[Rfam]
Shown here is a 136-nucleotide sequence from Rhynchospora breviuscula, a member of the family "Small nucleolar RNA snoR74". NCBI's taxonomy places the organism under Eukaryota, Tracheophyta, Cyperoideae, Rhynchosporeae, Rhynchospora. Its family is annotated with nucleolus and RNA processing in the Gene Ontology.
Nucleotides: 136
Stems, first nucleotide, its partner, number of pairs: 005051003011039002014036006064130004069125004079118007
Number, partner (000 for none) and nucleotide at each position: 001000a002000a003000a004000a005051a006050a007049g008000c009000a010000g011039g012038g013000c014036u015035c016034u017033g018032u019031u020000u021000u022000g023000u024000a025000u026000c027000a028000g029000u030000g031019g032018g033017c034016a035015g036014g037000g038012c039011u040000c041000u042000c043000g044000u045000c046000a047000a048000g049007c050006u051005u052000u053000a054000g055000g056000g057000a058000a059000a060000g061000a062000a063000a064130a065129u066128c067127a068000a069125u070124g071123u072122u073000a074000u075000u076000g077000g078000g079118u080117g081116a082115a083114c084113c085112u086000u087000u088000u089000g090000g091000u092000u093000a094000g095000a096000u097000a098000u099000u100000u101000u102000c103000u104000a105000u106000g107000a108000c109000a110000g111000g112085a113084g114083g115082u116081u117080c118079a119000g120000u121000a122072a123071a124070c125069a126000g127067u128066g129065a130064u131000a132000c133000a134000u135000u136000u